RNA sequence: ACCGCGCCUAGGGUAGCUCCCGAAACCCCGGUCCCUUGCCGGGUUGGCGCGGUUCCCACACAGGGG
Number, nucleotide and partner (000 for none) at each position: 001a053002c052003c051004g050005c049006g048007c047008c046009u000010a000011g021012g020013g019014u000015a000016g000017c000018u000019c013020c012021c011022g000023a000024a000025a000026c000027c043028c042029c041030g040031g039032u000033c066034c065035c064036u063037u062038g061039c031040c030041g029042g028043g027044u000045u000046g008047g007048c006049g005050c004051g003052g002053u001054u000055c000056c000057c000058a000059c000060a000061c038062a037063g036064g035065g034066g033
The record is a 66-nucleotide RNA sequence from Burkholderia cenocepacia, which matches "int-alpA RNA" in Rfam. The family's consensus secondary structure is taken from published work. It is one of the family's seed sequences. Rfam classes the family as a small RNA.